Small nucleolar RNA SNORD11B: an 82-nucleotide RNA sequence from Gouania willdenowi.

[Rfam]
RNA sequence: UGCCAGCUGUGAUGAUAAUGACAUAUGUCAUGUUCCUGAAUAAAAGUGAUGCUUUUAAGUCACUACCUCAUCUGAGCUUGUG
Numbered sequence: 001u002g003c004c005a006g007c008u009g010u011g012a013u014g015a016u017a018a019u020g021a022c023a024u025a026u027g028u029c030a031u032g033u034u035c036c037u038g039a040a041u042a043a044a045a046g047u048g049a050u051g052c053u054u055u056u057a058a059g060u061c062a063c064u065a066c067c068u069c070a071u072c073u074g075a076g077c078u079u080g081u082g
Stems, first nucleotide, its partner, number of pairs: 002081002005078003
Rfam 15.1 lists 733 matches to the family in 632 species. Taxonomically the source falls in Gouania (Eukaryota, Metazoa, Osteoglossocephalai, Euacanthomorphacea). A search with the family's covariance model found it, with a score of 64 bits. The family's consensus secondary structure was predicted with WAR.